[Rfam]
RNA sequence: GCCGAGCUUUGUAACGGAAGCUUGUAACCUAAGUGGGGGCAUUAAGGUGAUGGAACACGGGUUCGUCUCACUAAGUUGGAUCCAUCGUGGUUUGUAUCUGGCUUGCCCAUUCCAAGCCGAGAGUUGAGCCAAGGGAAUUGAGCGAAAGCUCUGGUUCUCGUGGUUCUCUUAGAACGGAGGGUACCGCGUGAGGCUGGUUUCACAGAGCAGCGAAUAUCUCCUGCUCUCGGCAGUGGAAGGAUAACAAGUCGGUUCCACCUGGAUCCAUCAUAGCUCAGUGAGUUGACCCUGACUGAACCGUCACUUUU
Numbered sequence: 001g002c003c004g005a006g007c008u009u010u011g012u013a014a015c016g017g018a019a020g021c022u023u024g025u026a027a028c029c030u031a032a033g034u035g036g037g038g039g040c041a042u043u044a045a046g047g048u049g050a051u052g053g054a055a056c057a058c059g060g061g062u063u064c065g066u067c068u069c070a071c072u073a074a075g076u077u078g079g080a081u082c083c084a085u086c087g088u089g090g091u092u093u094g095u096a097u098c099u100g101g102c103u104u105g106c107c108c109a110u111u112c113c114a115a116g117c118c119g120a121g122a123g124u125u126g127a128g129c130c131a132a133g134g135g136a137a138u139u140g141a142g143c144g145a146a147a148g149c150u151c152u153g154g155u156u157c158u159c160g161u162g163g164u165u166c167u168c169u170u171a172g173a174a175c176g177g178a179g180g181g182u183a184c185c186g187c188g189u190g191a192g193g194c195u196g197g198u199u200u201c202a203c204a205g206a207g208c209a210g211c212g213a214a215u216a217u218c219u220c221c222u223g224c225u226c227u228c229g230g231c232a233g234u235g236g237a238a239g240g241a242u243a244a245c246a247a248g249u250c251g252g253u254u255c256c257a258c259c260u261g262g263a264u265c266c267a268u269c270a271u272a273g274c275u276c277a278g279u280g281a282g283u284u285g286a287c288c289c290u291g292a293c294u295g296a297a298c299c300g301u302c303a304c305u306u307u308u
Stems, first nucleotide, its partner, number of pairs: 001040003004023007028037003044307010056295002058291003061287003065283002068281005074275004078266007087258004098252008107240002110238005116231009126166006133159008141150003169174001176221005187212003194205003

Shown here is a 308-nucleotide RNA from Gossypium australe, a member of the family "Plant signal recognition particle RNA". Its family is annotated with signal recognition particle, endoplasmic reticulum targeting and SRP-dependent cotranslational protein targeting to membrane, signal sequence recognition in the Gene Ontology. By type it is a non-coding RNA gene.